[Rfam]
A member of the RNA family "RT-15 RNA" from Aidingimonas halophila, 186 nucleotides long. By type it is a small RNA. The family's consensus secondary structure is taken from published work. It scores 170 bits against the family's covariance model.

Nucleotides: 186
Base pairs, nucleotide, nucleotide: 004042005041006040012035013034014033015032016031018029019028020027021026055179056178057177058176059175060174061081062080064078065077066076067075086127087126088125089124094123095122096121097120100119101118104114105113106112107111130165131164133162134161135160136159137158138157139156140155141154144152145151
Number, partner (000 for none) and nucleotide at each position: 001000c002000a003000u004042c005041g006040c007000c008000c009000g010000c011000u012035g013034c014033a015032u016031g017000c018029g019028c020027g021026u022000c023000a024000c025000g026021g027020c028019g029018c030000u031016c032015a033014u034013g035012c036000c037000u038000g039000a040006g041005c042004g043000a044000u045000u046000u047000g048000u049000a050000u051000c052000u053000g054000g055179u056178c057177g058176u059175g060174c061081c062080g063000c064078u065077g066076g067075c068000c069000a070000g071000u072000a073000a074000a075067g076066c077065c078064a079000c080062c081061g082000c083000c084000a085000a086127g087126c088125g089124c090000a091000c092000c093000a094123g095122g096121g097120a098000u099000a100119c101118c102000a103000c104114c105113g106112g107111c108000c109000g110000a111107g112106c113105c114104g115000a116000c117000a118101g119100g120097u121096c122095c123094c124089g125088c126087g127086c128000a129000g130165u131164u132000u133162c134161u135160c136159c137158a138157c139156u140155g141154a142000u143000c144152g145151g146000c147000a148000g149000g150000u151145c152144c153000u154141u155140c156139g157138g158137u159136g160135g161134a162133g163000c164131g165130a166000u167000g168000u169000a170000g171000a172000u173000a174060g175059c176058a177057c178056g179055a180000c181000a182000c183000g184000g185000c186000g